[Rfam]
RNA sequence: GCCAUAUUGAAUUUUCGUUCCUUGCUUCCGCAGAUUGAUGGCUGGUCUAUAGUCGGAGGCUGAUUAACCCGUAAGGAGCAGUAAUG
Numbered sequence: 001g002c003c004a005u006a007u008u009g010a011a012u013u014u015u016c017g018u019u020c021c022u023u024g025c026u027u028c029c030g031c032a033g034a035u036u037g038a039u040g041g042c043u044g045g046u047c048u049a050u051a052g053u054c055g056g057a058g059g060c061u062g063a064u065u066a067a068c069c070c071g072u073a074a075g076g077a078g079c080a081g082u083a084a085u086g
Stems, first nucleotide, its partner, number of pairs: 017079007024060006032048003

This 86-nucleotide RNA sequence from Volucribacter psittacicida belongs to the Rfam family "RpsF leader". The pairing is the family consensus, mapped onto this sequence. Conserved and widely distributed to many bacterial species RNA structure. It precedes operon containing rpsF, which encodes ribosomal protein S6. For this family Rfam cites "S6:S18 ribosomal protein complex interacts with a structural motif present in its own mRNA" (Matelska et al., RNA, 2013). Rfam classes the family as a cis-regulatory leader.